[Rfam]
RNA sequence: UCUGGUGGACGUGAUGACAUUUUUUCCCCGUCAGAGCGACAGUGUUGAUUUCUCACUGUUCAAGCCAAAUCGUGUCUGAUGCACCAGA
Numbered sequence: 001u002c003u004g005g006u007g008g009a010c011g012u013g014a015u016g017a018c019a020u021u022u023u024u025u026c027c028c029c030g031u032c033a034g035a036g037c038g039a040c041a042g043u044g045u046u047g048a049u050u051u052c053u054c055a056c057u058g059u060u061c062a063a064g065c066c067a068a069a070u071c072g073u074g075u076c077u078g079a080u081g082c083a084c085c086a087g088a
Stems, first nucleotide, its partner, number of pairs: 001088007009080001
Dot-bracket structure: (((((((.(......................................................................).)))))))
RNA: Small nucleolar SNORD12/SNORD106